[Rfam]
RNA sequence: UGUAAACUUUAGGGGUGUUCUAUUCAAGAACUGAGAAAAACCCUUUGAACCUGAUGCGGUUAGUACCGAUGAAGGGAAAAGUUGAAAAGCAUAU
Numbered sequence: 001u002g003u004a005a006a007c008u009u010u011a012g013g014g015g016u017g018u019u020c021u022a023u024u025c026a027a028g029a030a031c032u033g034a035g036a037a038a039a040a041c042c043c044u045u046u047g048a049a050c051c052u053g054a055u056g057c058g059g060u061u062a063g064u065a066c067c068g069a070u071g072a073a074g075g076g077a078a079a080a081g082u083u084g085a086a087a088a089g090c091a092u093a094u
Base pairs, nucleotide, nucleotide: 006082007081008080009079010078011044012043013042014041016038017031018030019029020028021027050075051074052073057068058067059066
RNA: TPP riboswitch aptamer (THI element)
Organism: Pseudotamlana haliotis